[Rfam]
RNA: SAM-III riboswitch aptamer (SMK box)
Organism: Latilactobacillus sakei
RNA sequence: UAGAGUUAUAAGAAGUUCCCGAUAGGAUUCACACACCGUGAAGAGGCCUUGUAACCGACACAUAUAUAGGGGGAAACAUAGAAAUG
Numbered sequence: 001u002a003g004a005g006u007u008a009u010a011a012g013a014a015g016u017u018c019c020c021g022a023u024a025g026g027a028u029u030c031a032c033a034c035a036c037c038g039u040g041a042a043g044a045g046g047c048c049u050u051g052u053a054a055c056c057g058a059c060a061c062a063u064a065u066a067u068a069g070g071g072g073g074a075a076a077c078a079u080a081g082a083a084a085u086g
Stems, first nucleotide, its partner, number of pairs: 016075005024049003028042005055070002